[Rfam]
RNA sequence: AGCCGUGGGCGAGGUGUUGAUCCGCCGGGCGAGUUGGUCGCCCAUGUCCGGCGGGGAGCCAGCGGCGAAACCGGCGUCCUUGGUA
Number, nucleotide and partner (000 for none) at each position: 001a000002g084003c083004c082005g081006u000007g079008g078009g077010c076011g075012a000013g060014g059015u058016g000017u000018u000019g000020a000021u000022c054023c053024g052025c051026c050027g049028g048029g047030c000031g000032a000033g000034u000035u000036g072037g071038u068039c067040g066041c065042c064043c000044a000045u000046g000047u029048c028049c027050g026051g025052c024053g023054g022055g000056g000057a000058g015059c014060c013061a000062g000063c000064g042065g041066c040067g039068a038069a000070a000071c037072c036073g000074g000075c011076g010077u009078c008079c007080u000081u005082g004083g003084u002085a000
RNA: c-di-GMP-II-GAG riboswitch aptamer